M-box riboswitch aptamer (ykoK leader): a 166-nucleotide RNA sequence from Leucobacter komagatae.
The literature on the family includes a 2004 paper in Proc Natl Acad Sci U S A by Barrick et al., "New RNA motifs suggest an expanded scope for riboswitches in bacterial genetic control".
RNA sequence: ACUGCGCCUCGUUCGGUGAGGCUCUUGCGUGAACACAGGCCACUGAUCUGACGACAUCGAGAGAUGCCCAAGGUUAAGACAGGCGCCCUCGGCUUAAGGGGGUGCCCAAAGUGGCUGCACCACGACUACGUCACGCAAUGCCGAAGCUCUGACAUGGAGGCGCAUU
Numbered sequence: 001a002c003u004g005c006g007c008c009u010c011g012u013u014c015g016g017u018g019a020g021g022c023u024c025u026u027g028c029g030u031g032a033a034c035a036c037a038g039g040c041c042a043c044u045g046a047u048c049u050g051a052c053g054a055c056a057u058c059g060a061g062a063g064a065u066g067c068c069c070a071a072g073g074u075u076a077a078g079a080c081a082g083g084c085g086c087c088c089u090c091g092g093c094u095u096a097a098g099g100g101g102g103u104g105c106c107c108a109a110a111g112u113g114g115c116u117g118c119a120c121c122a123c124g125a126c127u128a129c130g131u132c133a134c135g136c137a138a139u140g141c142c143g144a145a146g147c148u149c150u151g152a153c154a155u156g157g158a159g160g161c162g163c164a165u166u
Base pairs, nucleotide, nucleotide: 005162006161007160008159009158010157011153012152013097015148016147017146020142021141022140025138026137027136028135029134030133031132032131039115040114041113042112043111045075046074047073048072049071055066056065057064058063082106083105084104085103088100089099090098117126
The match comes from Rfam's covariance-model search (130 bits).